[Rfam]
Background: mir-29 microRNA precursor family: a 70-nucleotide sequence from Synaphobranchus kaupii.
RNA sequence: GGAAGCUGGUUUCAGGUGGUGCCUUAGAGUGUUGUGUUAUUAAUCUAGCACCAUUUGAAAUCAGUGUUCU
Numbered sequence: 001g002g003a004a005g006c007u008g009g010u011u012u013c014a015g016g017u018g019g020u021g022c023c024u025u026a027g028a029g030u031g032u033u034g035u036g037u038u039a040u041u042a043a044u045c046u047a048g049c050a051c052c053a054u055u056u057g058a059a060a061u062c063a064g065u066g067u068u069c070u
Base pairs, nucleotide, nucleotide: 001070002069003068004067005065006064007063008062009061010060011059012058013057014056016054017053018052019051020050021049025047026046027045028044
From the family's description: This family represents the microRNA (miRNA) precursors mir-29. The family's consensus secondary structure was predicted with PFOLD. For this family Rfam cites "microRNAs: tiny regulators with great potential" (Ambros, Cell, 2001). The organism belongs to Synaphobranchus, within Eukaryota. It scores 68 bits against the family's covariance model.